This 176-nucleotide RNA from Mycobacterium saskatchewanense belongs to the Rfam family "Actinobacteria sRNA Ms_IGR-5". By type it is a small RNA. A reference for the family is Li et al. (2013), "Identification of small RNAs in Mycobacterium smegmatis using heterologous Hfq", RNA.
RNA sequence: ACACAAGGAAGGAGGUGGUCCGCGAAUUGAUAGCUUCAUGGACAUGUGAGGUGGCUGCGCGCUAGCAGCAGUGACUCGGAAGACCCGGCCAAUUGCGCUGGCGAAUUCCCCGCAGUCACCCGGCCCCCGAGCUUCCGGUCUGUCCAACCUGGAGCUUUGCUCGGGGGCCGUCCCAU
Numbered sequence: 001a002c003a004c005a006a007g008g009a010a011g012g013a014g015g016u017g018g019u020c021c022g023c024g025a026a027u028u029g030a031u032a033g034c035u036u037c038a039u040g041g042a043c044a045u046g047u048g049a050g051g052u053g054g055c056u057g058c059g060c061g062c063u064a065g066c067a068g069c070a071g072u073g074a075c076u077c078g079g080a081a082g083a084c085c086c087g088g089c090c091a092a093u094u095g096c097g098c099u100g101g102c103g104a105a106u107u108c109c110c111c112g113c114a115g116u117c118a119c120c121c122g123g124c125c126c127c128c129g130a131g132c133u134u135c136c137g138g139u140c141u142g143u144c145c146a147a148c149c150u151g152g153a154g155c156u157u158u159g160c161u162c163g164g165g166g167g168c169c170g171u172c173c174c175a176u
Stems, first nucleotide, its partner, number of pairs: 015058005060103007068096004073090001075088001121170012134152002137149003